Description
This 131-nucleotide RNA from Aminipila butyrica belongs to the Rfam family "FMN riboswitch aptamer (RFN element)". The family's consensus secondary structure is taken from published work.
[Rfam]
RNA sequence: AAGAAUCUUCAGGGCGAGGUGAAAAUCCUCACCGGCGGUAAUGAGCGAAGGUGCUACGAGUCCGCGAGCCGACAGGCAGAAUGGGUUAGAUUCCCAUACCGACAGUAUAGUCUGGAUGAAAGAAGAUAUAC
Numbered sequence: 001a002a003g004a005a006u007c008u009u010c011a012g013g014g015c016g017a018g019g020u021g022a023a024a025a026u027c028c029u030c031a032c033c034g035g036c037g038g039u040a041a042u043g044a045g046c047g048a049a050g051g052u053g054c055u056a057c058g059a060g061u062c063c064g065c066g067a068g069c070c071g072a073c074a075g076g077c078a079g080a081a082u083g084g085g086u087u088a089g090a091u092u093c094c095c096a097u098a099c100c101g102a103c104a105g106u107a108u109a110g111u112c113u114g115g116a117u118g119a120a121a122g123a124a125g126a127u128a129u130a131c
Base pairs, nucleotide, nucleotide: 003129005127006126007125008124009123010122017029018028019027031111032110033101034100035065036064037063038062060099061098068077069076070075081097082096083095084094085093103114104113105112
Dot-bracket structure: ..(.((((((......(((.......))).[[((((((.....................[[))))..(((....)))...(((((.......)))))]])).(((....]]))).......)))))).)..